[Rfam]
RNA sequence: UCGGUGGAUCAGGUAGUUUCAUGUUGUUGGGCUCGUGCUCUCAAACACAACAACAGCGAACUGCCCCGUCCACUCC
Numbered sequence: 001u002c003g004g005u006g007g008a009u010c011a012g013g014u015a016g017u018u019u020c021a022u023g024u025u026g027u028u029g030g031g032c033u034c035g036u037g038c039u040c041u042c043a044a045a046c047a048c049a050a051c052a053a054c055a056g057c058g059a060a061c062u063g064c065c066c067c068g069u070c071c072a073c074u075c076c
Base pairs, nucleotide, nucleotide: 003074004073005072006071007070008069009068012065013064014063015062016061017060018059019058022055023054024053025052026051027050028049029048031046
RNA: mir-196 microRNA precursor family